[Rfam]
RNA: Pxr regulatory sRNA
Organism: Aggregicoccus sp. 17bor-14
RNA sequence: AAGGCCCGCUGAAGGCGGUUCCCCCCCACCCCUUCAGCACUUCAGGUGCGUUUCCUGUAGAAGACCCGCGGCCCGACGCUCCUCGUGAGUGUCGGGCCGCCUUCUUUU
Numbered sequence: 001a002a003g004g005c006c007c008g009c010u011g012a013a014g015g016c017g018g019u020u021c022c023c024c025c026c027c028a029c030c031c032c033u034u035c036a037g038c039a040c041u042u043c044a045g046g047u048g049c050g051u052u053u054c055c056u057g058u059a060g061a062a063g064a065c066c067c068g069c070g071g072c073c074c075g076a077c078g079c080u081c082c083u084c085g086u087g088a089g090u091g092u093c094g095g096g097c098c099g100c101c102u103u104c105u106u107u108u
Stems, first nucleotide, its partner, number of pairs: 001042003008038008017030003045055002048052001059105005068100014